[Rfam]
RNA sequence: UUUCUAUAAAAUUUUGAUUGUUGCUCAGAAAGCCGUGCCAUUUAACCAUAUCGCUUUCGAGCAGUAAUCAAAGUCAAAUAAGGC
Number, nucleotide and partner (000 for none) at each position: 001u000002u083003u082004c000005u080006a079007u078008a000009a000010a000011a000012u073013u072014u071015u070016g069017a068018u067019u000020g065021u064022u063023g062024c061025u060026c059027a000028g058029a057030a056031a055032g054033c053034c000035g000036u000037g000038c000039c000040a000041u000042u000043u000044a000045a000046c000047c000048a000049u000050a000051u000052c000053g033054c032055u031056u030057u029058c028059g026060a025061g024062c023063a022064g021065u020066a000067a018068u017069c016070a015071a014072a013073g012074u000075c000076a000077a000078a007079u006080a005081a000082g003083g002084c000

A member of the RNA family "mir-315 microRNA precursor family" from Anopheles sinensis, 84 nucleotides long. It scores 77 bits against the family's covariance model. Taxonomically the source falls in Myzorhynchus (Eukaryota, Hexapoda, Aparaglossata, Anopheles).